[Rfam]
A member of the RNA family "Small nucleolar RNA Z43" from Ensete ventricosum, 101 nucleotides long. Lineage of the source: Eukaryota > Embryophyta > Tracheophyta > Petrosaviidae > Ensete.

RNA sequence: GGACGAUGACGAAUGCCAUGGUUAAAGGUCUCGUUCGUCGUAAUGGCGGCGCCACCGCCUUGCCGACCAUCCUGAUAUAUCACCACCCAUAUUCCGAGUCC
Number, nucleotide and partner (000 for none) at each position: 001g101002g100003a099004c098005g000006a000007u000008g000009a000010c000011g000012a000013a000014u000015g000016c000017c000018a000019u000020g000021g000022u000023u000024a000025a000026a000027g000028g000029u000030c000031u000032c000033g000034u000035u000036c000037g000038u000039c000040g000041u000042a000043a000044u000045g000046g000047c000048g056049g000050c000051g000052c000053c000054a000055c000056c048057g000058c000059c000060u000061u000062g000063c000064c000065g000066a000067c000068c000069a000070u000071c000072c000073u000074g000075a000076u000077a000078u000079a000080u000081c000082a000083c000084c000085a000086c000087c000088c000089a000090u000091a000092u000093u000094c000095c000096g000097a000098g004099u003100c002101c001

Overview:
Rfam 15.1 lists 859 matches to the family in 240 species.